A member of the RNA family "Small nucleolar RNA Z159/U59" from Lactuca sativa, 87 nucleotides long. By type it is a C/D-box small nucleolar RNA.

[Rfam]
RNA sequence: GUCUCUUAUGAUGAAUCAAAUUUAAUAACUUUCGUUCUUCUGAGAUUAACCAUGCUGAAAGUUUUUGGAGACCUGAACUGAAGAGAC
Numbered sequence: 001g002u003c004u005c006u007u008a009u010g011a012u013g014a015a016u017c018a019a020a021u022u023u024a025a026u027a028a029c030u031u032u033c034g035u036u037c038u039u040c041u042g043a044g045a046u047u048a049a050c051c052a053u054g055c056u057g058a059a060a061g062u063u064u065u066u067g068g069a070g071a072c073c074u075g076a077a078c079u080g081a082a083g084a085g086a087c
Stems, first nucleotide, its partner, number of pairs: 003085004
Dot-bracket structure: ..((((...........................................................................))))..